[Rfam]
RNA sequence: GGCAGUUCUCAGGUGACACACCCCAGAAUUGGGUUCCCUCCUCUCUGAUUCUGGGUGCCUCACCUGAGAACCACA
Numbered sequence: 001g002g003c004a005g006u007u008c009u010c011a012g013g014u015g016a017c018a019c020a021c022c023c024c025a026g027a028a029u030u031g032g033g034u035u036c037c038c039u040c041c042u043c044u045c046u047g048a049u050u051c052u053g054g055g056u057g058c059c060u061c062a063c064c065u066g067a068g069a070a071c072c073a074c075a
Stems, first nucleotide, its partner, number of pairs: 002074001005071012019057005025052009
RNA: mir-9223 microRNA precursor family
Organism: Myotis myotis